[Rfam]
RNA sequence: GAUUGAAGAGGGAGGAUAGACGGGGACGAGACAGAGCAUGAGAUGAGAUUUUCAUCAACACACUUUUGACUGAUAAAAUAUGUCGGUGCUCUUCUCCUGCACUGCCUCUUCCCUGGCUUUCCUCUCUCGUUCUUUC
Numbered sequence: 001g002a003u004u005g006a007a008g009a010g011g012g013a014g015g016a017u018a019g020a021c022g023g024g025g026a027c028g029a030g031a032c033a034g035a036g037c038a039u040g041a042g043a044u045g046a047g048a049u050u051u052u053c054a055u056c057a058a059c060a061c062a063c064u065u066u067u068g069a070c071u072g073a074u075a076a077a078a079u080a081u082g083u084c085g086g087u088g089c090u091c092u093u094c095u096c097c098u099g100c101a102c103u104g105c106c107u108c109u110u111c112c113c114u115g116g117c118u119u120u121c122c123u124c125u126c127u128c129g130u131u132c133u134u135u136c
Base pairs, nucleotide, nucleotide: 018118019117021115022114023113024112025111026110029107030106032104033103034102036100037099038098040096041095045091046090
The family of this 136-nucleotide sequence from Camellia sinensis is "MIR408 microRNA precursor family". A search with the family's covariance model found it, with a score of 70 bits. Its family is annotated with miRNA-mediated post-transcriptional gene silencing and RISC complex in the Gene Ontology.